RNA: Fluoride riboswitch aptamer (crcB RNA motif)
Organism: Clostridium thailandense
RNA sequence: AAUAUUGUUGGUGAUGGAGCUCACCUUUAAUUGCGUUAAGCUAAUGGCUCCUACUUUAAU
Numbered sequence: 001a002a003u004a005u006u007g008u009u010g011g012u013g014a015u016g017g018a019g020c021u022c023a024c025c026u027u028u029a030a031u032u033g034c035g036u037u038a039a040g041c042u043a044a045u046g047g048c049u050c051c052u053a054c055u056u057u058a059a060u
Stems, first nucleotide, its partner, number of pairs: 010025004016051006033041002